The family of this 134-nucleotide RNA from Paracoccus sp. 228 is "FMN riboswitch aptamer (RFN element)".
[Rfam]
RNA sequence: UGGUGUUCUCAGGGCGGGGUGCAAUUCCCCACCGGCGGUGACAGCCCGCGAGCGCCCCUUGCCACGGCAGGGGGGUCAGCAGAUCCGGUGAAAUUCCGGGGCCGACGGUAUAGUCCGGAUGGAAGAGAACCGCC
Number, nucleotide and partner (000 for none) at each position: 001u000002g000003g000004u000005g130006u129007u128008c127009u126010c125011a000012g000013g000014g000015c000016g000017g029018g028019g027020u000021g000022c000023a000024a000025u000026u000027c019028c018029c017030c000031a114032c113033c104034g103035g049036c048037g047038g046039u000040g000041a000042c000043a000044g102045c101046c038047c037048g036049c035050g000051a000052g080053c079054g000055c000056c000057c000058c000059u000060u000061g000062c000063c000064a000065c000066g000067g000068c000069a000070g000071g000072g000073g000074g000075g000076u000077c000078a000079g053080c052081a000082g000083a000084u100085c099086c098087g097088g096089u000090g000091a000092a000093a000094u000095u000096c088097c087098g086099g085100g084101g045102c044103c034104g033105a000106c117107g116108g115109u000110a000111u000112a000113g032114u031115c108116c107117g106118g000119a000120u000121g000122g000123a000124a000125g010126a009127g008128a007129a006130c005131c000132g000133c000134c000

Description
Taxonomically the source falls in Paracoccus (Bacteria, Pseudomonadati, Pseudomonadota, Paracoccaceae). The family has 146 seed sequences and 6,230 matches in Rfam 15.1.